The record is a 61-nucleotide RNA from Physeter macrocephalus, which matches "U7 small nuclear RNA" in Rfam.
RNA sequence: AAGUGUUAUAGCUCUUUUAGAAUUGGUCUGGCAGGUUUCUAGUCCUUACCAGAAGACCUCC
Numbered sequence: 001a002a003g004u005g006u007u008a009u010a011g012c013u014c015u016u017u018u019a020g021a022a023u024u025g026g027u028c029u030g031g032c033a034g035g036u037u038u039c040u041a042g043u044c045c046u047u048a049c050c051a052g053a054a055g056a057c058c059u060c061c
Stems, first nucleotide, its partner, number of pairs: 034058003037054004042049002
The base pairs follow the family's consensus structure, which was predicted with PFOLD. Animal histone pre-mRNAs are spliced by a different mechanism than nuclear pre-mRNAs and self-splicing introns. This processing involves the U7 snRNP, which contains only one RNA species: U7. The literature on the family includes a 1994 paper in Nucleic Acids Res by Spycher et al., "3' end processing of mouse histone pre-mRNA: evidence for additional base-pairing between U7 snRNA and pre-mRNA". The match comes from Rfam's covariance-model search (48 bits).